Overview
TPP riboswitch aptamer (THI element): a 95-nucleotide sequence from Prevotella sp. CAG:487. NCBI's taxonomy places the organism under Bacteria, Pseudomonadati, Bacteroidales, Prevotellaceae, Prevotella.
[Rfam]
RNA sequence: GAGUAAGUUAAGGGGUGCCGGAGAUUUCCGGCUGAGAUUAAACCCUCUGACCAGAUCCGGUUAGUACCGGCGUUGGAAUAAGACAACACAUGAAA
Dot-bracket structure: .......(((((((.((((((......))))).......)..))))....((((..((((......))))..))))..)))..............